[Rfam]
Shown here is a 102-nucleotide RNA sequence from Microlunatus elymi, a member of the family "TPP riboswitch aptamer (THI element)". It scores 69 bits against the family's covariance model.
RNA sequence: UCAGAACGACAGGGGAGCGCAGAGCGCUGAGAGUGCGGGUAACCGCAGACCCUCAGACCUGAUCUGGGUAAUGCCAGCGAAGGGAGUCGACCGGGACCACCG
Numbered sequence: 001u002c003a004g005a006a007c008g009a010c011a012g013g014g015g016a017g018c019g020c021a022g023a024g025c026g027c028u029g030a031g032a033g034u035g036c037g038g039g040u041a042a043c044c045g046c047a048g049a050c051c052c053u054c055a056g057a058c059c060u061g062a063u064c065u066g067g068g069u070a071a072u073g074c075c076a077g078c079g080a081a082g083g084g085a086g087u088c089g090a091c092c093g094g095g096a097c098c099a100c101c102g
Stems, first nucleotide, its partner, number of pairs: 007089004011053004017027004034047005058083003064077004